[Rfam]
RNA sequence: CCUACUCCACCUCGUAAGUAUCCGUGUUCAAUGUUUGACCGUUUGUUUUAUUUAAAAAACAUUAGUCAUAUAUACAAUAGUAUUUAUGUUUUAUCAUCUAAUAACAAUAAAAGUCCUAAUCAUAAAAAAAUUUCAAAUAAAACAAAUGAUCAAACAUUGGACAUGAGAAGUACAACUGUAUUUAUU
Numbered sequence: 001c002c003u004a005c006u007c008c009a010c011c012u013c014g015u016a017a018g019u020a021u022c023c024g025u026g027u028u029c030a031a032u033g034u035u036u037g038a039c040c041g042u043u044u045g046u047u048u049u050a051u052u053u054a055a056a057a058a059a060c061a062u063u064a065g066u067c068a069u070a071u072a073u074a075c076a077a078u079a080g081u082a083u084u085u086a087u088g089u090u091u092u093a094u095c096a097u098c099u100a101a102u103a104a105c106a107a108u109a110a111a112a113g114u115c116c117u118a119a120u121c122a123u124a125a126a127a128a129a130a131u132u133u134c135a136a137a138u139a140a141a142a143c144a145a146a147u148g149a150u151c152a153a154a155c156a157u158u159g160g161a162c163a164u165g166a167g168a169a170g171u172a173c174a175a176c177u178g179u180a181u182u183u184a185u186u
Stems, first nucleotide, its partner, number of pairs: 027161006034154005040148012
MIR812 microRNA precursor family: a 186-nucleotide RNA sequence from Oryza sativa. Gene Ontology terms of the family: miRNA-mediated post-transcriptional gene silencing and RISC complex. NCBI's taxonomy places the organism under Eukaryota, Streptophyta, Tracheophyta, Poaceae, Oryza sativa. The family's consensus secondary structure was predicted with RNAalifold. It scores 86 bits against the family's covariance model.